[Rfam]
RNA sequence: GGAGAUUUGAUGGAGGGCUGUCCCUAGUACGAGAGGACCGGGAUGGACGAACCGCUGGUGUGCCAGUUGUACCGCCAGGUGCAUGGCUGGUUGGCUACGUUCGGGAGCGAUAACCGCUGAAAGCAUCUAAGCGGGAAGCGUGCUCUAAGAUGAGAUCUCCGUCAGCGCAAGCUGGUGAGGCGCCCUAGAGAUGAUGGGGUUGAUAGGCCCGACAUGGAAGCACAGCAAUGUGUGGAGUGGACGGGUACUAACCGCCGAGA
Numbered sequence: 001g002g003a004g005a006u007u008u009g010a011u012g013g014a015g016g017g018c019u020g021u022c023c024c025u026a027g028u029a030c031g032a033g034a035g036g037a038c039c040g041g042g043a044u045g046g047a048c049g050a051a052c053c054g055c056u057g058g059u060g061u062g063c064c065a066g067u068u069g070u071a072c073c074g075c076c077a078g079g080u081g082c083a084u085g086g087c088u089g090g091u092u093g094g095c096u097a098c099g100u101u102c103g104g105g106a107g108c109g110a111u112a113a114c115c116g117c118u119g120a121a122a123g124c125a126u127c128u129a130a131g132c133g134g135g136a137a138g139c140g141u142g143c144u145c146u147a148a149g150a151u152g153a154g155a156u157c158u159c160c161g162u163c164a165g166c167g168c169a170a171g172c173u174g175g176u177g178a179g180g181c182g183c184c185c186u187a188g189a190g191a192u193g194a195u196g197g198g199g200u201u202g203a204u205a206g207g208c209c210c211g212a213c214a215u216g217g218a219a220g221c222a223c224a225g226c227a228a229u230g231u232g233u234g235g236a237g238u239g240g241a242c243g244g245g246u247a248c249u250a251a252c253c254g255c256c257g258a259g260a
Stems, first nucleotide, its partner, number of pairs: 001160008012146004018046007048103005056097003063090005068083006107141003114134005163174003176258001179256004183199005204250003207246005213239002220233005
Bacterial large subunit ribosomal RNA: a 260-nucleotide part of an RNA from Glycomyces terrestris. The source organism's lineage runs through Bacteria, Bacillati, Glycomycetales, Glycomycetaceae and Glycomyces. Pairs were carried over by alignment from the consensus structure, which is taken from published work.